Mammalian CPEB3 ribozyme: a 77-nucleotide RNA sequence from Parnassius apollo. The organism belongs to Parnassius, within Eukaryota. A search with the family's covariance model found it, with a score of 46 bits. Gene Ontology term of the family: RNA nuclease activity.
[Rfam]
RNA sequence: AAUUAAGAAUAGGGGGUCAAUGUAGAAGCCUGCUCGUCGCGGCCCCUGCCAGCCCUUUUCAGGGGUGCAAUUCUACA
Numbered sequence: 001a002a003u004u005a006a007g008a009a010u011a012g013g014g015g016g017u018c019a020a021u022g023u024a025g026a027a028g029c030c031u032g033c034u035c036g037u038c039g040c041g042g043c044c045c046c047u048g049c050c051a052g053c054c055c056u057u058u059u060c061a062g063g064g065g066u067g068c069a070a071u072u073c074u075a076c077a
Stems, first nucleotide, its partner, number of pairs: 013046006021077007028040002050067002053064004